[Rfam]
RNA sequence: UCUGGAUCCAUGAUGUUGUAAAAAACUGCGUUAUCUAUCUGCAAUUCCAUAAAUGGAUUGAAGAUUACAAUAAAUUUCUGAGAUCCAGG
Numbered sequence: 001u002c003u004g005g006a007u008c009c010a011u012g013a014u015g016u017u018g019u020a021a022a023a024a025a026c027u028g029c030g031u032u033a034u035c036u037a038u039c040u041g042c043a044a045u046u047c048c049a050u051a052a053a054u055g056g057a058u059u060g061a062a063g064a065u066u067a068c069a070a071u072a073a074a075u076u077u078c079u080g081a082g083a084u085c086c087a088g089g
Stems, first nucleotide, its partner, number of pairs: 001089007
RNA: Small nucleolar RNA snoR27
Organism: Protea cynaroides